[Rfam]
RNA sequence: GGCAGCAGGGGACGCGAUGAUCCCCGAGCCGUCAUGAGUCGGUCGCCGAGGCUGACAGGGUGCCAGCGGGCUCGGGGGGAGCGAGCGGCGAGACCGACCCCAGGACCG
Number, nucleotide and partner (000 for none) at each position: 001g000002g107003c000004a000005g000006c103007a000008g101009g100010g099011g098012a000013c083014g082015c081016g000017a000018u000019g000020a000021u000022c077023c076024c075025c074026g073027a072028g071029c070030c000031g000032u000033c000034a000035u000036g000037a000038g000039u000040c000041g095042g094043u091044c090045g089046c088047c087048g000049a000050g000051g000052c000053u000054g000055a000056c000057a000058g000059g000060g000061u000062g000063c000064c000065a000066g000067c000068g000069g000070g029071c028072u027073c026074g025075g024076g023077g022078g000079g000080a000081g015082c014083g013084a000085g000086c000087g047088g046089c045090g044091a043092g000093a000094c042095c041096g000097a000098c011099c010100c009101c008102a000103g006104g000105a000106c000107c002108g000
RNA: c-di-GMP-II-GAG riboswitch aptamer